[Rfam]
RNA sequence: CGAGAAAACCAAUGUCAAGGAACUCUGCAAAUUCAUCCCGUAAGUUCGCAAGAAGGGAUGCCCACCCUAAAAAGUGGGCCGCAGUGAAUAGUAAGGGGGAACUGUUUAUCAAAAACACAGCUCUAUGCUAAGUCGUAAGACGAUGUAUAUGGGGUGACUCCUGCCCAGUGCCCGAAGGUUAAGCAAAGGUGUUAGCUUUAUGCGAAGCAUUGAUGUGAAGCCCGGGUGAACGGCGGCCGUAACUAUAACGGUCCUAAGGUAGCGAAAUUCCUUGUCGGCUAAAUACUGACCUGCACGAAAGGAGUAAUUAUCUCUUAACUGUCUCGACAUUGGACUCG
Dot-bracket structure: ((((....((((((((.(((..............(((((....(....).....)))))((((((..(....)))))))(...).......(((((((((..(((.........)))..(((((((((...(((....)))...)..))))))))..((((.(((..(((((((..(((...((...(((((..((.....))...)))))...))...))))))))..)))))((((((.......))))))(...).....(.........(((((.......)))))).........))))...)).)))))))....))).)))))))).))))
Numbered sequence: 001c002g003a004g005a006a007a008a009c010c011a012a013u014g015u016c017a018a019g020g021a022a023c024u025c026u027g028c029a030a031a032u033u034c035a036u037c038c039c040g041u042a043a044g045u046u047c048g049c050a051a052g053a054a055g056g057g058a059u060g061c062c063c064a065c066c067c068u069a070a071a072a073a074g075u076g077g078g079c080c081g082c083a084g085u086g087a088a089u090a091g092u093a094a095g096g097g098g099g100a101a102c103u104g105u106u107u108a109u110c111a112a113a114a115a116c117a118c119a120g121c122u123c124u125a126u127g128c129u130a131a132g133u134c135g136u137a138a139g140a141c142g143a144u145g146u147a148u149a150u151g152g153g154g155u156g157a158c159u160c161c162u163g164c165c166c167a168g169u170g171c172c173c174g175a176a177g178g179u180u181a182a183g184c185a186a187a188g189g190u191g192u193u194a195g196c197u198u199u200a201u202g203c204g205a206a207g208c209a210u211u212g213a214u215g216u217g218a219a220g221c222c223c224g225g226g227u228g229a230a231c232g233g234c235g236g237c238c239g240u241a242a243c244u245a246u247a248a249c250g251g252u253c254c255u256a257a258g259g260u261a262g263c264g265a266a267a268u269u270c271c272u273u274g275u276c277g278g279c280u281a282a283a284u285a286c287u288g289a290c291c292u293g294c295a296c297g298a299a300a301g302g303a304g305u306a307a308u309u310a311u312c313u314c315u316u317a318a319c320u321g322u323c324u325c326g327a328c329a330u331u332g333g334a335c336u337c338g
Stems, first nucleotide, its partner, number of pairs: 001338004009333008018324003035059005044049001060079006068073001080084001092317007099309002103117003120155008128145001132141003158304004163234003168231002170227005177222003183216002188211005195203002235253006254258001264291001274290005
Shown here is a 338-nucleotide part of an RNA from Metamycoplasma canadense, a member of the family "Bacterial large subunit ribosomal RNA".
Gene Ontology terms of the family: ribosome and structural constituent of ribosome.
The organism belongs to Metamycoplasma, within Bacteria.